RNA sequence: GGAUGUGAUGAAAUGGCAUAAUGUUUUGUGACACCCAGUCUGAUCUGCUUCUGCAGUAUUGAGUGAUUUGCCAUAGUUUCUGAUCU
Numbered sequence: 001g002g003a004u005g006u007g008a009u010g011a012a013a014u015g016g017c018a019u020a021a022u023g024u025u026u027u028g029u030g031a032c033a034c035c036c037a038g039u040c041u042g043a044u045c046u047g048c049u050u051c052u053g054c055a056g057u058a059u060u061g062a063g064u065g066a067u068u069u070g071c072c073a074u075a076g077u078u079u080c081u082g083a084u085c086u
Stems, first nucleotide, its partner, number of pairs: 001086003014073005
RNA: Small nucleolar RNA snoR4a
Organism: Microthlaspi erraticum